The family of this 82-nucleotide RNA sequence from Haloechinothrix halophila is "ZMP/ZTP riboswitch aptamer (pfl RNA motif)". The match comes from Rfam's covariance-model search (49 bits).
RNA sequence: GUUGCGACGUGCGACUGGCGCGAGAAGGUGGAGCACCACCGGGGAGCGACUAUCGCGGACACCGUGCGCCUGGGUGUCCGUC
Numbered sequence: 001g002u003u004g005c006g007a008c009g010u011g012c013g014a015c016u017g018g019c020g021c022g023a024g025a026a027g028g029u030g031g032a033g034c035a036c037c038a039c040c041g042g043g044g045a046g047c048g049a050c051u052a053u054c055g056c057g058g059a060c061a062c063c064g065u066g067c068g069c070c071u072g073g074g075u076g077u078c079c080g081u082c
Base pairs, nucleotide, nucleotide: 003055004054007051010048011047012046015043016042017070018069019068020067021066028039029038030037031036059077060076061075062074063073